Record summary:
A member of the RNA family "mir-137 microRNA precursor family" from Petromyzon marinus, 71 nucleotides long. Rfam's curators put it in the seed alignment. The family is grouped with related families in Rfam's "mir-137 clan".
[Rfam]
RNA sequence: CGCGGCGACGCGUAUUCUUGGGUAAAUAAUACGUUUCCCGCUGUUAUUGCUUAAGAAUACACGUAGCCGGG
Numbered sequence: 001c002g003c004g005g006c007g008a009c010g011c012g013u014a015u016u017c018u019u020g021g022g023u024a025a026a027u028a029a030u031a032c033g034u035u036u037c038c039c040g041c042u043g044u045u046a047u048u049g050c051u052u053a054a055g056a057a058u059a060c061a062c063g064u065a066g067c068c069g070g071g
Base pairs, nucleotide, nucleotide: 001071003069004068005067008064009063010062012060013059014058015057016056017055018054019053020052021051022050023049025048026047027046028045029044030043031042032040033039